[Rfam]
RNA: Plastid-rps18 3UTR RNA
Organism: Nicotiana attenuata
RNA sequence: UGCAAGUAUUUUACGGUUAAGAAGCAACUGUCUCUUGUAUAGAUCGUGUAUUAUCUA
Numbered sequence: 001u002g003c004a005a006g007u008a009u010u011u012u013a014c015g016g017u018u019a020a021g022a023a024g025c026a027a028c029u030g031u032c033u034c035u036u037g038u039a040u041a042g043a044u045c046g047u048g049u050a051u052u053a054u055c056u057a
Stems, first nucleotide, its partner, number of pairs: 018037005024031002